[Rfam]
RNA: Pseudomonas sRNA P11
Organism: Pseudomonas sp. StFLB209
RNA sequence: CCAACGCACACAUGGCACGCCCCCUGCAUUAACCUGAACAACACACACAUUACGUGCGGUCUUCAAUGGCGAAGGCGGCAUUUCCCGGUUUACGGGAGCGGACAAAGGCGUCCUCGUCAGGCUACUGGCGAGGGCGCU
Numbered sequence: 001c002c003a004a005c006g007c008a009c010a011c012a013u014g015g016c017a018c019g020c021c022c023c024c025u026g027c028a029u030u031a032a033c034c035u036g037a038a039c040a041a042c043a044c045a046c047a048c049a050u051u052a053c054g055u056g057c058g059g060u061c062u063u064c065a066a067u068g069g070c071g072a073a074g075g076c077g078g079c080a081u082u083u084c085c086c087g088g089u090u091u092a093c094g095g096g097a098g099c100g101g102a103c104a105a106a107g108g109c110g111u112c113c114u115c116g117u118c119a120g121g122c123u124a125c126u127g128g129c130g131a132g133g134g135c136g137c138u
Stems, first nucleotide, its partner, number of pairs: 013104002015027003054081004060075002063072002083097005107138007115130006